[Rfam]
RNA sequence: AAUUUCCUGGAAUGUUCGAUGCUCCUAUUAUUUUGAACCUACAAUUACUUUAAACGGGAUGCUUAUUAUUGUUCUGUGGAUGUCAGGCCACCCUGGAAACAGAUGUCAGUGGAAGACAAAAGCAUUAACUGCGGCGGCCCACCUAGCUGUAGCUAGGAGUCAAAAAAUAGGAAACGGCAUUUCGGGGUUACC
Numbered sequence: 001a002a003u004u005u006c007c008u009g010g011a012a013u014g015u016u017c018g019a020u021g022c023u024c025c026u027a028u029u030a031u032u033u034u035g036a037a038c039c040u041a042c043a044a045u046u047a048c049u050u051u052a053a054a055c056g057g058g059a060u061g062c063u064u065a066u067u068a069u070u071g072u073u074c075u076g077u078g079g080a081u082g083u084c085a086g087g088c089c090a091c092c093c094u095g096g097a098a099a100c101a102g103a104u105g106u107c108a109g110u111g112g113a114a115g116a117c118a119a120a121a122g123c124a125u126u127a128a129c130u131g132c133g134g135c136g137g138c139c140c141a142c143c144u145a146g147c148u149g150u151a152g153c154u155a156g157g158a159g160u161c162a163a164a165a166a167a168u169a170g171g172a173a174a175c176g177g178c179a180u181u182u183c184g185g186g187g188u189u190a191c192c
Base pairs, nucleotide, nucleotide: 005187006186007185008184009183010182011181012180013179014178015177017176018175029167031165032164034162035161036160038157039156056140057139058138060136061135062134063133071129072128073127075124076123077122083116084115088112089111090110091109
RNA: 6S / SsrS RNA